A member of the RNA family "Bacterial RNase P class A" from Streptomyces fuscichromogenes, 418 nucleotides long. The organism belongs to Streptomyces, within Bacteria.
RNA sequence: CGAGCCGGGCGGACGGCCGCGUGGAGUCCCCUUGACGGGGGCUUCCCGAGGAACGUCCGGGCUCCACAGGGCAGGGUGGUGGCUAACGGCCACCCGAGGCGACUCGCGGGACAGUGCCACAGAAAGCAAACCGCCGGGGACCUCGGUCCUCGGUAAGGGUGAAACGGUGGUGUAAGAGACCACCAGUGCCCAGGGCGACCUGGGCAGCUAGGUAAACCCCACCCGGAGCAAGGUCAAGAGGGAGUCCCUUCCAAGGAUAGGAAGAGGUCUCCUGCGGGAACGUUUGAGGGCUGCCCGCCCGAGUUCCCGGGUAGACCGCAUGAGACCGGCGGCAACGUCGGUCCUAGAUGGAUGGCCGUCACCCCGGCACCCGCGAGGGCCCGGGGCACAGAACCCGGCGUACAGCCCGACUCGUCUG
Numbered sequence: 001c002g003a004g005c006c007g008g009g010c011g012g013a014c015g016g017c018c019g020c021g022u023g024g025a026g027u028c029c030c031c032u033u034g035a036c037g038g039g040g041g042c043u044u045c046c047c048g049a050g051g052a053a054c055g056u057c058c059g060g061g062c063u064c065c066a067c068a069g070g071g072c073a074g075g076g077u078g079g080u081g082g083c084u085a086a087c088g089g090c091c092a093c094c095c096g097a098g099g100c101g102a103c104u105c106g107c108g109g110g111a112c113a114g115u116g117c118c119a120c121a122g123a124a125a126g127c128a129a130a131c132c133g134c135c136g137g138g139g140a141c142c143u144c145g146g147u148c149c150u151c152g153g154u155a156a157g158g159g160u161g162a163a164a165c166g167g168u169g170g171u172g173u174a175a176g177a178g179a180c181c182a183c184c185a186g187u188g189c190c191c192a193g194g195g196c197g198a199c200c201u202g203g204g205c206a207g208c209u210a211g212g213u214a215a216a217c218c219c220c221a222c223c224c225g226g227a228g229c230a231a232g233g234u235c236a237a238g239a240g241g242g243a244g245u246c247c248c249u250u251c252c253a254a255g256g257a258u259a260g261g262a263a264g265a266g267g268u269c270u271c272c273u274g275c276g277g278g279a280a281c282g283u284u285u286g287a288g289g290g291c292u293g294c295c296c297g298c299c300c301g302a303g304u305u306c307c308c309g310g311g312u313a314g315a316c317c318g319c320a321u322g323a324g325a326c327c328g329g330c331g332g333c334a335a336c337g338u339c340g341g342u343c344c345u346a347g348a349u350g351g352a353u354g355g356c357c358g359u360c361a362c363c364c365c366g367g368c369a370c371c372c373g374c375g376a377g378g379g380c381c382c383g384g385g386g387c388a389c390a391g392a393a394c395c396c397g398g399c400g401u402a403c404a405g406c407c408c409g410a411c412u413c414g415u416c417u418g
Stems, first nucleotide, its partner, number of pairs: 001414004006409005011403001012360007020048002023045008053401003057398005062228004069296004074224005079093005094108001095106004109219002114217002116213003131158002133154009166184006186208001187206008232317004242308001244306001247303001288300004324343008
Rfam links the family to the GO terms dimeric ribonuclease P complex, ribonuclease P activity and tRNA processing. The match comes from Rfam's covariance-model search (294 bits). Rfam's curators write: Ribonuclease P (RNase P) is a ubiquitous endoribonuclease, found in archaea, bacteria and eukarya as well as chloroplasts and mitochondria.